[Rfam]
RNA sequence: GAGAACUGAUAAUUUGAGGAGUGAAAUGAAGGCGUAACGUCCUGAAGCGCUCCCUCUAAUACUCCGAUUGGCAAUUCUCUUGGUUAGAAAAUGGAUUGUCAAAAGCUCGGUGAAGUCGGCUGAGAGUUACCGUCAUUGCUUAACAGCAAUCGAAAGUCGUCCAGCGGUGGACGGUGUAACCCAUAGGCCGGGAGUCCACAAA
Numbered sequence: 001g002a003g004a005a006c007u008g009a010u011a012a013u014u015u016g017a018g019g020a021g022u023g024a025a026a027u028g029a030a031g032g033c034g035u036a037a038c039g040u041c042c043u044g045a046a047g048c049g050c051u052c053c054c055u056c057u058a059a060u061a062c063u064c065c066g067a068u069u070g071g072c073a074a075u076u077c078u079c080u081u082g083g084u085u086a087g088a089a090a091a092u093g094g095a096u097u098g099u100c101a102a103a104a105g106c107u108c109g110g111u112g113a114a115g116u117c118g119g120c121u122g123a124g125a126g127u128u129a130c131c132g133u134c135a136u137u138g139c140u141u142a143a144c145a146g147c148a149a150u151c152g153a154a155a156g157u158c159g160u161c162c163a164g165c166g167g168u169g170g171a172c173g174g175u176g177u178a179a180c181c182c183a184u185a186g187g188c189c190g191g192g193a194g195u196c197c198a199c200a201a202a
Stems, first nucleotide, its partner, number of pairs: 018053006031043002034040001054194004064110004068102010080090002117190005126180005131152002138147002156175008
The record is a 202-nucleotide RNA from Enterococcus phoeniculicola, which matches "Group II catalytic intron D1-D4-5" in Rfam. On this family, see Lehmann and Schmidt, Crit Rev Biochem Mol Biol 2003: "Group II introns: structure and catalytic versatility of large natural ribozymes". Gene Ontology term of the family: Group II intron splicing.